[Rfam]
RNA sequence: AAGCUCAAGGGCGUCCAAAUCUUGCUUCUAGCAUUUCCCUGUACGUUAGCGAUCAUGGGUAAAACCUAGCGACCUGGAGUUUGGCCGGCCGCUAGUACGUCGACGGAACGCGGCUGGUU
Numbered sequence: 001a002a003g004c005u006c007a008a009g010g011g012c013g014u015c016c017a018a019a020u021c022u023u024g025c026u027u028c029u030a031g032c033a034u035u036u037c038c039c040u041g042u043a044c045g046u047u048a049g050c051g052a053u054c055a056u057g058g059g060u061a062a063a064a065c066c067u068a069g070c071g072a073c074c075u076g077g078a079g080u081u082u083g084g085c086c087g088g089c090c091g092c093u094a095g096u097a098c099g100u101c102g103a104c105g106g107a108a109c110g111c112g113g114c115u116g117g118u119u
Stems, first nucleotide, its partner, number of pairs: 001082006008075003011046004016041002023033004049070002057066002084118009099104001